[Rfam]
RNA sequence: UCCCUGCUUUUCCUCCCUGAGCAGGUGCCUUACGUGAUGACAGCGUCAAGGCUUCACAGCCCCGGCUUUGCCGGGGCUCUUUUUU
Numbered sequence: 001u002c003c004c005u006g007c008u009u010u011u012c013c014u015c016c017c018u019g020a021g022c023a024g025g026u027g028c029c030u031u032a033c034g035u036g037a038u039g040a041c042a043g044c045g046u047c048a049a050g051g052c053u054u055c056a057c058a059g060c061c062c063c064g065g066c067u068u069u070g071c072c073g074g075g076g077c078u079c080u081u082u083u084u085u
Stems, first nucleotide, its partner, number of pairs: 003025006027052004032046003058078008